Source information
A member of the RNA family "Plastid-ycf2 5UTR RNA" from Musa acuminata, 75 nucleotides long.
RNA sequence: UGGUAGGAACUAGGAAUUGAACCUACGAAUUUGCCAAUUAUGAGUUGGGCGCUUUAACCAUUCAGCCAUGGAUGC
Dot-bracket structure: ..(((.....((((.......))))..............(((.((((((.(.......).)))))))))...)))
A reference for the family is Richter et al. (2023), "Retrograde signaling in plants: A critical review focusing on the GUN pathway and beyond", Plant Commun. The organism belongs to Musa acuminata, within Eukaryota. It is annotated as a cis-regulatory element. From the family's description: Plastid ycf2 is a non-coding RNA (ncRNA) recognised in plastids. It was found in the prime untranslated region (5UTR) of ycf2 genes, it presents a tRNA-like motif which suggests it can be involved in mRNA maturation, particularly involved in defining the precise 5' end of the transcript.